[Rfam]
RAGATH-18 RNA: a 66-nucleotide sequence from Clostridium sartagoforme.
RNA sequence: CCUUUUGAGAACUACACCAAACUAGAGUAGAUUUUUAAAUUAAAAUAGAGUUUGAUGAAAAAGGAA
Numbered sequence: 001c002c003u004u005u006u007g008a009g010a011a012c013u014a015c016a017c018c019a020a021a022c023u024a025g026a027g028u029a030g031a032u033u034u035u036u037a038a039a040u041u042a043a044a045a046u047a048g049a050g051u052u053u054g055a056u057g058a059a060a061a062a063g064g065a066a
Stems, first nucleotide, its partner, number of pairs: 001064005009053005022048003030041003
Record summary
It is annotated as a small RNA. Actinobacteria, Firmicutes, Fusobacteria, Thermotogae (1 example). NCBI's taxonomy places the organism under Bacteria, Bacillota, Clostridia, Eubacteriales, Clostridium sartagoforme.